[Rfam]
Nucleotides: 110
Base pairs, nucleotide, nucleotide: 006104007103008102009101010100011099012098013061014060015059016058019055020054021053022052023051024050028043029042031040032039033038063095064094065093067090068089073086074085
Number, partner (000 for none) and nucleotide at each position: 001000g002000u003000u004000a005000c006104c007103a008102c009101u010100g011099a012098a013061c014060g015059g016058u017000g018000g019055c020054u021053g022052u023051c024050g025000u026000g027000a028043g029042g030000u031040a032039c033038u034000g035000g036000g037000g038033a039032g040031u041000a042029c043028u044000g045000c046000u047000g048000a049000c050024c051023g052022g053021c054020g055019g056000g057000u058016a059015c060014c061013g062000a063095g064094u065093c066000u067090g068089g069000g070000c071000u072000a073086c074085a075000g076000c077000c078000a079000a080000g081000g082000g083000a084000a085074u086073g087000g088000g089068c090067c091000u092000g093065g094064a095063c096000g097000u098012u099011u100010c101009g102008g103007u104006g105000a106000a107000g108000g109000a110000g
The family of this 110-nucleotide sequence is "Actinomyces-1 RNA". It is annotated as a small RNA.